[Rfam]
RNA sequence: AGGGACCAGGAAGACCUGUAUACCAAGCAACACACUGAGAAGGUUUCUUUCUCUCUGAAAGCUUGGGGGAAAGUCCCCGGACACUGGGCAGAGAGUGCUGGGCCAUGAUUGGCCUCUGCUCUCCCUAUGCGACAUUGAUUGGCCAAGACGCUCUCUAGGGCUGAGCUUUAGUCAAGGGAAGGCGAUAGUCGCAGCACAGAUUUAUACAGGUGGCAGGCCAGUCUCUGAUUGGUCGGCUAACACAAUGGGGCUCACUCUCUUGGUACC
Numbered sequence: 001a002g003g004g005a006c007c008a009g010g011a012a013g014a015c016c017u018g019u020a021u022a023c024c025a026a027g028c029a030a031c032a033c034a035c036u037g038a039g040a041a042g043g044u045u046u047c048u049u050u051c052u053c054u055c056u057g058a059a060a061g062c063u064u065g066g067g068g069g070a071a072a073g074u075c076c077c078c079g080g081a082c083a084c085u086g087g088g089c090a091g092a093g094a095g096u097g098c099u100g101g102g103c104c105a106u107g108a109u110u111g112g113c114c115u116c117u118g119c120u121c122u123c124c125c126u127a128u129g130c131g132a133c134a135u136u137g138a139u140u141g142g143c144c145a146a147g148a149c150g151c152u153c154u155c156u157a158g159g160g161c162u163g164a165g166c167u168u169u170a171g172u173c174a175a176g177g178g179a180a181g182g183c184g185a186u187a188g189u190c191g192c193a194g195c196a197c198a199g200a201u202u203u204a205u206a207c208a209g210g211u212g213g214c215a216g217g218c219c220a221g222u223c224u225c226u227g228a229u230u231g232g233u234c235g236g237c238u239a240a241c242a243c244a245a246u247g248g249g250g251c252u253c254a255c256u257c258u259c260u261u262g263g264u265a266c267c
Base pairs, nucleotide, nucleotide: 002267003266005264006263007262008261009260010259011258014211015210016209017208018207019206023066024065025064026063027062028061037053038052039051040050041049042048043047072252073251075250076249077248078247087099088098089097090096100115101114102113103112104111105110121181122180124178125177126176131173132172133171141167142166143165150161151160152159153158213237214236216234217233218232219231220230221229
RNA: RNase MRP